[Rfam]
RNA sequence: UAAAAACACUAGGGGAGUCUUUUAAGACUGAGAUGGAGAAAUCCGGACCCUUUGAACCUGAUCUAGUUGAAACUAGCGUAGGGAAGUGGUUGCUAUGUAUU
Numbered sequence: 001u002a003a004a005a006a007c008a009c010u011a012g013g014g015g016a017g018u019c020u021u022u023u024a025a026g027a028c029u030g031a032g033a034u035g036g037a038g039a040a041a042u043c044c045g046g047a048c049c050c051u052u053u054g055a056a057c058c059u060g061a062u063c064u065a066g067u068u069g070a071a072a073c074u075a076g077c078g079u080a081g082g083g084a085a086g087u088g089g090u091u092g093c094u095a096u097g098u099a100u101u
Base pairs, nucleotide, nucleotide: 007088008087009086010085011051012050013049014048017028018027019026020025035044036043037042057082058081059080060079063076064075065074066073
The record is a 101-nucleotide sequence from Planococcus halotolerans, which matches "TPP riboswitch aptamer (THI element)" in Rfam. Rfam describes the family as follows. Vitamin B(1) in its active form thiamin pyrophosphate (TPP) is an essential coenzyme that is synthesised by coupling of pyrimidine and thiazole moieties in bacteria. The previously detected thiamin-regulatory element, thi box was extended, resulting in a new, highly conserved RNA secondary structure, the THI element, which is widely distributed in eubacteria and also occurs in some archaea. Analysis of operon structures identified a large number of new candidate thiamin-regulated genes, mostly transporters, in various prokaryotic organisms. The base pairs follow the family's consensus structure, which is taken from published work. Lineage of the source: Bacteria > Bacillati > Bacilli > Caryophanales > Planococcus. The match comes from Rfam's covariance-model search (80 bits).